[Rfam]
Nucleotides: 071
Stems, first nucleotide, its partner, number of pairs: 002069004007064001010061003015056004020051010
Number, partner (000 for none) and nucleotide at each position: 001000g002069a003068g004067a005066a006000a007064g008000a009000a010061c011060c012059c013000g014000u015056a016055g017054a018053a019000c020051c021050g022049a023048a024047c025046u026045u027044g028043u029042g030000u031000u032000u033000g034000u035000u036000u037000u038000u039000u040000g041000u042029c043028a044027c045026g046025g047024g048023u049022u050021c051020g052000c053018u054017u055016u056015u057000a058000a059012g060011g061010g062000u063000a064007c065000c066005u067004u068003c069002u070000u071000u